RNA sequence: CUGCCGCUAGUGAAGCCAACUGUGCUCUUUCCCCACGGGGGCCUGGUGGGCCGUGGCCGAAAACAGUAGCCUCCUGGGUAGUGUAUGCAGCCUGUUGCGUGUUGGGGUUGCCCUAAGGGACCUUGGAGACAGCC
Numbered sequence: 001c002u003g004c005c006g007c008u009a010g011u012g013a014a015g016c017c018a019a020c021u022g023u024g025c026u027c028u029u030u031c032c033c034c035a036c037g038g039g040g041g042c043c044u045g046g047u048g049g050g051c052c053g054u055g056g057c058c059g060a061a062a063a064c065a066g067u068a069g070c071c072u073c074c075u076g077g078g079u080a081g082u083g084u085a086u087g088c089a090g091c092c093u094g095u096u097g098c099g100u101g102u103u104g105g106g107g108u109u110g111c112c113c114u115a116a117g118g119g120a121c122c123u124u125g126g127a128g129a130c131a132g133c134c
Stems, first nucleotide, its partner, number of pairs: 003051003019047004025041004077122003088110006

Rfam assigns this 134-nucleotide RNA from Panthera tigris to the family "Small nucleolar RNA SNORA70".
By type it is an H/ACA-box small nucleolar RNA.
snoRNA U70 seems to be exclusive to mammals and is a member of the H/ACA class of snoRNA which contain H (ANANNA) and ACA box motifs.
The family has 43 seed sequences and 5,173 matches in Rfam 15.1.
Its family is annotated with RNA processing and nucleolus in the Gene Ontology.
The family's consensus secondary structure was predicted with PFOLD.
Lineage of the source: Eukaryota > Sarcopterygii > Amniota > Mammalia > Panthera tigris.